[Rfam]
RNA sequence: GGCGAUAAAUGGUCUGCGUAAUAAGCUUGUUGGACCCGGGGGCGGUACCCGGCGCCUCCACCAUUCUUGAUGAGAAUGAAAAUAAAAUAUUUUUCUCAAUACUAAGGGGGCGAAAUAGGAUAGACAAGAGUGUAAAGGUUGAAAGUUCGCUCGGCAUUGUACCACCGUUAUAGGUCUAAAAAUAUAGUUGCAAAUGACAACUUACCUGGGUUAAGGGUUGCUGCUUAA
Numbered sequence: 001g002g003c004g005a006u007a008a009a010u011g012g013u014c015u016g017c018g019u020a021a022u023a024a025g026c027u028u029g030u031u032g033g034a035c036c037c038g039g040g041g042g043c044g045g046u047a048c049c050c051g052g053c054g055c056c057u058c059c060a061c062c063a064u065u066c067u068u069g070a071u072g073a074g075a076a077u078g079a080a081a082a083u084a085a086a087a088u089a090u091u092u093u094u095c096u097c098a099a100u101a102c103u104a105a106g107g108g109g110g111c112g113a114a115a116u117a118g119g120a121u122a123g124a125c126a127a128g129a130g131u132g133u134a135a136a137g138g139u140u141g142a143a144a145g146u147u148c149g150c151u152c153g154g155c156a157u158u159g160u161a162c163c164a165c166c167g168u169u170a171u172a173g174g175u176c177u178a179a180a181a182a183u184a185u186a187g188u189u190g191c192a193a194a195u196g197a198c199a200a201c202u203u204a205c206c207u208g209g210g211u212u213a214a215g216g217g218u219u220g221c222u223g224c225u226u227a228a
Stems, first nucleotide, its partner, number of pairs: 001151005014141001016139002026130003030127003036052005053112007152167003